[Rfam]
RNA sequence: ACCUUAUCAAGAGAGGCUGAGGGACAGGCCCUGUGAAGCCCAGCAACCACCUUUUAAGGAAACGGUGCUAAUUCCUACAAGAUGAAAUCUUGAGAGAUGAGGU
Numbered sequence: 001a002c003c004u005u006a007u008c009a010a011g012a013g014a015g016g017c018u019g020a021g022g023g024a025c026a027g028g029c030c031c032u033g034u035g036a037a038g039c040c041c042a043g044c045a046a047c048c049a050c051c052u053u054u055u056a057a058g059g060a061a062a063c064g065g066u067g068c069u070a071a072u073u074c075c076u077a078c079a080a081g082a083u084g085a086a087a088u089c090u091u092g093a094g095a096g097a098u099g100a101g102g103u
Stems, first nucleotide, its partner, number of pairs: 001103008013041001015040003021031003026076003042069004047065002051059002073095001078092006